[Rfam]
Rfam assigns this 79-nucleotide RNA to the family "Small nucleolar RNA R12". The base pairs follow the family's consensus structure, which was predicted with PFOLD. snoR12 is a C/D box small nucleolar RNA, which acts as a methylation guide for 25S ribosomal RNA in plants. snoR12 has been alternatively named snoZ44 in Arabidopsis and snoZ131 in rice. It is annotated as a C/D-box small nucleolar RNA.
RNA sequence: AUCUGGGUGAUGAAGAAAAUCAGACGGAUUCCCAUUGGUUUUCCAAUAUGAUUUUAACAACCAGCUACUUCUGACAGAU
Numbered sequence: 001a002u003c004u005g006g007g008u009g010a011u012g013a014a015g016a017a018a019a020u021c022a023g024a025c026g027g028a029u030u031c032c033c034a035u036u037g038g039u040u041u042u043c044c045a046a047u048a049u050g051a052u053u054u055u056a057a058c059a060a061c062c063a064g065c066u067a068c069u070u071c072u073g074a075c076a077g078a079u
Stems, first nucleotide, its partner, number of pairs: 001079005